This 75-nucleotide RNA from Streptomyces sp. Rer75 belongs to the Rfam family "ASpks TB sRNA".
RNA sequence: CUUCAGCGCGCCCAGCCACAGCGGCUGUCCUUCGGCCCGCCCCUGCCCAUACGUGGCGAUCAGCGCCUGCGCCUC
Numbered sequence: 001c002u003u004c005a006g007c008g009c010g011c012c013c014a015g016c017c018a019c020a021g022c023g024g025c026u027g028u029c030c031u032u033c034g035g036c037c038c039g040c041c042c043c044u045g046c047c048c049a050u051a052c053g054u055g056g057c058g059a060u061c062a063g064c065g066c067c068u069g070c071g072c073c074u075c
Stems, first nucleotide, its partner, number of pairs: 014026004031071001033069001038065002044059001047056003
The family has 77 seed sequences and 9,052 matches in Rfam 15.1. The base pairs follow the family's consensus structure, which is taken from published work. By type it is an antisense RNA. Taxonomically the source falls in Streptomyces (Bacteria, Actinomycetota, Kitasatosporales, Streptomycetaceae). A search with the family's covariance model found it, with a score of 76 bits.